[Rfam]
RNA sequence: AUUUCCACUGCUGCAUCAAGAGUAUACCCAUCUUCAGCAGGACUUAGAAUUCCUGGAGCGUUGCCUUUGUGAAAAGCUGGCAAUAAUUUCUUUAAGUUCCGUCUCUUAGUUUUCCUGAACAUCUAGAAACC
Number, nucleotide and partner (000 for none) at each position: 001a000002u000003u000004u000005c000006c080007a000008c000009u000010g077011c076012u075013g000014c000015a000016u071017c069018a068019a067020g066021a000022g064023u063024a062025u000026a061027c060028c000029c000030a000031u000032c000033u000034u000035c000036a000037g000038c000039a054040g053041g052042a051043c000044u000045u000046a000047g000048a000049a000050u000051u042052c041053c040054u039055g000056g000057a000058g000059c000060g027061u026062u024063g023064c022065c000066u020067u019068u018069g017070u000071g016072a000073a000074a000075a012076g011077c010078u000079g000080g006081c000082a000083a000084u000085a000086a000087u129088u128089u127090c126091u125092u000093u000094a000095a000096g000097u119098u118099c117100c000101g000102u000103c000104u000105c000106u000107u000108a000109g000110u000111u000112u000113u000114c000115c000116u000117g099118a098119a097120c000121a000122u000123c000124u000125a091126g090127a089128a088129a087130c000131c000
The record is a 131-nucleotide sequence from Hipposideros armiger, which matches "ODC internal ribosome entry site (IRES)" in Rfam. Rfam links the family to the GO term ribosome binding. A reference for the family is Pyronnet et al. (2005), "Alternative splicing facilitates internal ribosome entry on the ornithine decarboxylase mRNA", Cell Mol Life Sci. The family's consensus secondary structure was predicted with mfold. A search with the family's covariance model found it, with a score of 96 bits.